[Rfam]
RNA: Streptomyces sRNA scr5239
RNA sequence: CUUCCACCCUCCCCGCACAGGAGGGUGGAACGAGGUACCCGGCGCUCUCUGCCCUGACUGCGUCGAGACCUCCCACACGGCCGAGGGACCGCACACCCCCGGCCUGCUGCUCCGGGCUGCGGUGCCGGACGGGUUGAGGGUCCCGUCCUGGCGC
Numbered sequence: 001c002u003u004c005c006a007c008c009c010u011c012c013c014c015g016c017a018c019a020g021g022a023g024g025g026u027g028g029a030a031c032g033a034g035g036u037a038c039c040c041g042g043c044g045c046u047c048u049c050u051g052c053c054c055u056g057a058c059u060g061c062g063u064c065g066a067g068a069c070c071u072c073c074c075a076c077a078c079g080g081c082c083g084a085g086g087g088a089c090c091g092c093a094c095a096c097c098c099c100c101g102g103c104c105u106g107c108u109g110c111u112c113c114g115g116g117c118u119g120c121g122g123u124g125c126c127g128g129a130c131g132g133g134u135u136g137a138g139g140g141u142c143c144c145g146u147c148c149u150g151g152c153g154c
Stems, first nucleotide, its partner, number of pairs: 003029004008024005032072005040065003044061002046057002079104005085098003108124004113119002127148007
Dot-bracket structure: ..((((.(((((.......))))).))))..(((((...(((.((((........))..)).)))..)))))......(((((.(((........))).)))))...((((.((...)).))))..(((((((........)))))))......